RNA: mir-3492 microRNA precursor family
RNA sequence: AGCAUUUCAAAUCCGUGCAGAGAUUUCGUCAGACAGUAACCCAUUGGGGCUGAUCAUACUUCCAAGAUAAGUGAUGUU
Numbered sequence: 001a002g003c004a005u006u007u008c009a010a011a012u013c014c015g016u017g018c019a020g021a022g023a024u025u026u027c028g029u030c031a032g033a034c035a036g037u038a039a040c041c042c043a044u045u046g047g048g049g050c051u052g053a054u055c056a057u058a059c060u061u062c063c064a065a066g067a068u069a070a071g072u073g074a075u076g077u078u
Base pairs, nucleotide, nucleotide: 002077003076004075005074006073008071011068012067013066016064017063020061021060022059024058026056028054029053030052